[Rfam]
RNA sequence: UUCUUAUCCAGAGAGGUGGAGGGACUGGCCCUUUGAAGCCUCGGCAGCGGUCUUUUUGAAGAACUGUGCCAAUUCCAGAAAGCAAAUUGCUUGAAGAUAAGAA
Dot-bracket structure: ((((((((....(((((...(((.[[[[)))......)))))((((.((.((((....))))..))))))...(]]]](.((((...)))))..)))))))))
Numbered sequence: 001u002u003c004u005u006a007u008c009c010a011g012a013g014a015g016g017u018g019g020a021g022g023g024a025c026u027g028g029c030c031c032u033u034u035g036a037a038g039c040c041u042c043g044g045c046a047g048c049g050g051u052c053u054u055u056u057u058g059a060a061g062a063a064c065u066g067u068g069c070c071a072a073u074u075c076c077a078g079a080a081a082g083c084a085a086a087u088u089g090c091u092u093g094a095a096g097a098u099a100a101g102a103a
Stems, first nucleotide, its partner, number of pairs: 001103008013042005021031003025078004043070004048066002051062004074095001079092001081091004